[Rfam]
RNA sequence: CUAUCGAGUAGAAGCGGUUAGCGCCGAUGCGCCUCCCCCCAGCGGGCAGACGCAUGCCGGCGUGGGACAUUGCUCUCGCG
Numbered sequence: 001c002u003a004u005c006g007a008g009u010a011g012a013a014g015c016g017g018u019u020a021g022c023g024c025c026g027a028u029g030c031g032c033c034u035c036c037c038c039c040c041a042g043c044g045g046g047c048a049g050a051c052g053c054a055u056g057c058c059g060g061c062g063u064g065g066g067a068c069a070u071u072g073c074u075c076u077c078g079c080g
Stems, first nucleotide, its partner, number of pairs: 006075005015065001018067002021063006
Xanthine riboswitch aptamer (NMT1 RNA): an 80-nucleotide RNA from Cupriavidus basilensis. The sequence is in the family's curated seed alignment. A reference for the family is Yu and Breaker (2020), "A bacterial riboswitch class senses xanthine and uric acid to regulate genes associated with purine oxidation", RNA.